Shown here is a 67-nucleotide RNA sequence from Acipenser ruthenus, a member of the family "Small nucleolar RNA SNORD58". Pairs were carried over by alignment from the consensus structure, which was predicted with PFOLD. Its Rfam clan is "SNORD58 clan". Rfam classes the family as a C/D-box small nucleolar RNA. The literature on the family includes a 1996 paper in Cell by Kiss-Laszlo et al., "Site-specific ribose methylation of preribosomal RNA: a novel function for small nucleolar RNAs". Lineage of the source: Eukaryota > Metazoa > Craniata > Acipenserinae > Acipenser. Rfam's curators write: snoRNA U58 is found in introns 1, 3 and 6 of the ribosomal protein RPL17 gene in humans.
[Rfam]
RNA sequence: UUGCUAUGUUGAAGUCUUAGGACACCUUUGGAAUACCCAUGAAAAUAAAAUUGUGUUACUGAGCAAU
Numbered sequence: 001u002u003g004c005u006a007u008g009u010u011g012a013a014g015u016c017u018u019a020g021g022a023c024a025c026c027u028u029u030g031g032a033a034u035a036c037c038c039a040u041g042a043a044a045a046u047a048a049a050a051u052u053g054u055g056u057u058a059c060u061g062a063g064c065a066a067u
Stems, first nucleotide, its partner, number of pairs: 001066004